[Rfam]
RNA: Glycine riboswitch aptamer
Organism: Treponema primitia
RNA sequence: UUGAUGAAUUCGGGAGAGAAUGGAAGCGCAUGGUGCGUUUUCGUCGCCGAAGGGGCAAACGCACAAAACUCUCAGGCAAAUGUACCGAAUUUUGACG
Numbered sequence: 001u002u003g004a005u006g007a008a009u010u011c012g013g014g015a016g017a018g019a020a021u022g023g024a025a026g027c028g029c030a031u032g033g034u035g036c037g038u039u040u041u042c043g044u045c046g047c048c049g050a051a052g053g054g055g056c057a058a059a060c061g062c063a064c065a066a067a068a069c070u071c072u073c074a075g076g077c078a079a080a081u082g083u084a085c086c087g088a089a090u091u092u093u094g095a096c097g
Stems, first nucleotide, its partner, number of pairs: 006092008020044008046077003049073002053071003